[Rfam]
RNA: msiK RNA
RNA sequence: UUCUGCGGCUUGUUCACGACGGAUCGUCCGGCACGUACCUGCCGGUGAAGGAGCAUCGA
Numbered sequence: 001u002u003c004u005g006c007g008g009c010u011u012g013u014u015c016a017c018g019a020c021g022g023a024u025c026g027u028c029c030g031g032c033a034c035g036u037a038c039c040u041g042c043c044g045g046u047g048a049a050g051g052a053g054c055a056u057c058g059a
Stems, first nucleotide, its partner, number of pairs: 010052002013049004028045006